[Rfam]
RNA sequence: UUCUUAUCGAGAGAAGCUGAGGGACUGGCCCGUGGAAGCUUCAGCAACCAGCCGCCUGAUGGCUAAGGUGCUAAAUCCAGCAAACUGCCGGGCAGUUUGAAAGAUAAGAA
Numbered sequence: 001u002u003c004u005u006a007u008c009g010a011g012a013g014a015a016g017c018u019g020a021g022g023g024a025c026u027g028g029c030c031c032g033u034g035g036a037a038g039c040u041u042c043a044g045c046a047a048c049c050a051g052c053c054g055c056c057u058g059a060u061g062g063c064u065a066a067g068g069u070g071c072u073a074a075a076u077c078c079a080g081c082a083a084a085c086u087g088c089c090g091g092g093c094a095g096u097u098u099g100a101a102a103g104a105u106a107a108g109a110a
Base pairs, nucleotide, nucleotide: 001110002109003108004107005106006105007104008103013042014041015040016039017038021031022030023029025080026079027078028077043072044071045070046069048068049067050064051063052062053061076102081099082098083097084096085095086094
Notes: Shown here is a 110-nucleotide RNA from Bacillus thermotolerans, a member of the family "SAM riboswitch aptamer (S box leader)". Taxonomically the source falls in Bacillus (Bacteria, Bacillati, Caryophanales, Bacillaceae). It scores 99 bits against the family's covariance model.